[Rfam]
Shown here is a 128-nucleotide sequence from Platysternon megacephalum, a member of the family "Small nucleolar RNA SNORA38". ACA38 is a member of the H/ACA class of snoRNA that guide the sites of modification of uridines to pseudouridines. Pairs were carried over by alignment from the consensus structure, which was predicted with RNAfold. It scores 63 bits against the family's covariance model. The family's RNA type in Rfam is H/ACA-box small nucleolar RNA. Its family is annotated with RNA processing, Cajal body and nucleolus in the Gene Ontology.
Nucleotides: 128
Stems, first nucleotide, its partner, number of pairs: 002057005015044007025029001071123003088106003092102003
Number, partner (000 for none) and nucleotide at each position: 001000g002057c003056c004055u005054c006053c007000c008000a009000c010000a011000a012000a013000g014000g015044c016043g017042u018041g019040c020039c021038c022000g023000u024000a025029c026000c027000c028000u029025g030000c031000a032000c033000u034000g035000u036000g037000u038021g039020g040019g041018c042017a043016c044015g045000u046000a047000a048000g049000a050000a051000c052000c053006g054005g055004a056003g057002g058000c059000a060000a061000a062000g063000c064000a065000c066000u067000g068000a069000a070000a071123g072122g073121a074000a075000c076000g077000a078000g079000u080000a081000a082000c083000g084000g085000g086000a087000c088106a089105g090104c091000u092102g093101c094100u095000c096000c097000c098000u099000g100094g101093g102092c103000u104090g105089c106088u107000c108000c109000u110000g111000u112000a113000u114000c115000u116000u117000c118000a119000c120000u121073u122072c123071c124000u125000a126000c127000a128000c